A member of the RNA family "Group II catalytic intron D1-D4-7" from Mucinivorans hirudinis, 149 nucleotides long.
Taxonomically the source falls in Mucinivorans (Bacteria, Pseudomonadati, Bacteroidia, Rikenellaceae).
The family has 244 seed sequences and 1,296 matches in Rfam 15.1.
Gene Ontology term of the family: Group II intron splicing.
Group II introns are found in rRNA, tRNA and mRNA of organelles in fungi, plants and protists, and also in mRNA in bacteria.

[Rfam]
RNA sequence: CCUACUGUUCCGUCAGUAGUAGCCUAUGGGUACGUGCAUUUCAAGUGAUUGGUUUGUACGAAGCUACCCAGACAAAGUAGCCCUUCCGCAAGGAAAAGCAGAAGCCGUGAGGCAGAAGCAAUGACCGCCAGCAUUAGGGGGUUGGGGAG
Numbered sequence: 001c002c003u004a005c006u007g008u009u010c011c012g013u014c015a016g017u018a019g020u021a022g023c024c025u026a027u028g029g030g031u032a033c034g035u036g037c038a039u040u041u042c043a044a045g046u047g048a049u050u051g052g053u054u055u056g057u058a059c060g061a062a063g064c065u066a067c068c069c070a071g072a073c074a075a076a077g078u079a080g081c082c083c084u085u086c087c088g089c090a091a092g093g094a095a096a097a098g099c100a101g102a103a104g105c106c107g108u109g110a111g112g113c114a115g116a117a118g119c120a121a122u123g124a125c126c127g128c129c130a131g132c133a134u135u136a137g138g139g140g141g142u143u144g145g146g147g148a149g
Base pairs, nucleotide, nucleotide: 002019003018004017005016006015007014028069029068030067031066032065033060034059035058036057037056038055041052042051043050044049084095085094086093087092098119099118105112106111124142125141126140128138129137